The family of this 197-nucleotide sequence from Triticum aestivum is "U2 spliceosomal RNA". It is annotated as a spliceosomal small nuclear RNA. From the family's description: U2 is a small nuclear RNA (snRNA) component of the spliceosome (involved in pre-mRNA splicing). The family's consensus secondary structure is taken from published work.
RNA sequence: AUACCUUUCUCGGCCUUUUGGCUAAGAUCAAGUGUAGUAUAUGUUCUUAUCAGUUUAAUAUCUGAUAUGUGGGCCAUGUGCCUACAACGAUAUUAAAUUUAUUUUUUGUGAGGGAGGGUCCACCACACUAGCUUGCUAGUAGGGCCCUCAUGUGCCGCCGGGGCGUUGCAUUACUGCCUAGGCUAGGCGCACCCCAA
Numbered sequence: 001a002u003a004c005c006u007u008u009c010u011c012g013g014c015c016u017u018u019u020g021g022c023u024a025a026g027a028u029c030a031a032g033u034g035u036a037g038u039a040u041a042u043g044u045u046c047u048u049a050u051c052a053g054u055u056u057a058a059u060a061u062c063u064g065a066u067a068u069g070u071g072g073g074c075c076a077u078g079u080g081c082c083u084a085c086a087a088c089g090a091u092a093u094u095a096a097a098u099u100u101a102u103u104u105u106u107u108g109u110g111a112g113g114g115a116g117g118g119u120c121c122a123c124c125a126c127a128c129u130a131g132c133u134u135g136c137u138a139g140u141a142g143g144g145c146c147c148u149c150a151u152g153u154g155c156c157g158c159c160g161g162g163g164c165g166u167u168g169c170a171u172u173a174c175u176g177c178c179u180a181g182g183c184u185a186g187g188c189g190c191a192c193c194c195c196a197a
Stems, first nucleotide, its partner, number of pairs: 008027003012023004048067006069085006114149008128139004152190005159181001161179004